Shown here is a 143-nucleotide RNA from Zea mays, a member of the family "mir-172 microRNA precursor family". Its family is annotated with RISC complex and miRNA-mediated post-transcriptional gene silencing in the Gene Ontology. The organism belongs to Zea, within Eukaryota. mir-172 has been experimentally verified in Arabidopsis thaliana. This family is thought to target mRNAs coding for APETALA2-like transcription factors. The mature sequence is excised from the 3' arm of the hairpin.
RNA sequence: GUGCUUGCAGGUGCAGCACCACCAAGAUUCACAUCCAACUCUCACGCAUCUUCAGUGAUGCAUGCAUGCUCUGUGAUGUCUCGCAGCAGCUAUAUGCAUAUGUGAUGAGAUGAGAAUCUUGAUGAUGCUGCAUCAGCAGACAC
Numbered sequence: 001g002u003g004c005u006u007g008c009a010g011g012u013g014c015a016g017c018a019c020c021a022c023c024a025a026g027a028u029u030c031a032c033a034u035c036c037a038a039c040u041c042u043c044a045c046g047c048a049u050c051u052u053c054a055g056u057g058a059u060g061c062a063u064g065c066a067u068g069c070u071c072u073g074u075g076a077u078g079u080c081u082c083g084c085a086g087c088a089g090c091u092a093u094a095u096g097c098a099u100a101u102g103u104g105a106u107g108a109g110a111u112g113a114g115a116a117u118c119u120u121g122a123u124g125a126u127g128c129u130g131c132a133u134c135a136g137c138a139g140a141c142a143c
Base pairs, nucleotide, nucleotide: 010134011133012132013131014130015129016128017127018126020124021123023121024120025119026118027117028116029115030114032112033111034110035109